Shown here is a 78-nucleotide RNA from Tricholaema leucomelas, a member of the family "Small nucleolar RNA SNORD111". The family's consensus secondary structure was predicted with RNAalifold. It scores 49 bits against the family's covariance model. The literature on the family includes a 2001 paper in EMBO J by Huttenhofer et al., "RNomics: an experimental approach that identifies 201 candidates for novel, small, non-messenger RNAs in mouse".
[Rfam]
RNA sequence: UGGCCUGAAAUGAUGCUAUGACUUCAUGUCUCUUCUCUGAGAUGUCAUGGAGACAAACAGGUCUUUCUGAUCAGGCUU
Numbered sequence: 001u002g003g004c005c006u007g008a009a010a011u012g013a014u015g016c017u018a019u020g021a022c023u024u025c026a027u028g029u030c031u032c033u034u035c036u037c038u039g040a041g042a043u044g045u046c047a048u049g050g051a052g053a054c055a056a057a058c059a060g061g062u063c064u065u066u067c068u069g070a071u072c073a074g075g076c077u078u
Stems, first nucleotide, its partner, number of pairs: 002077004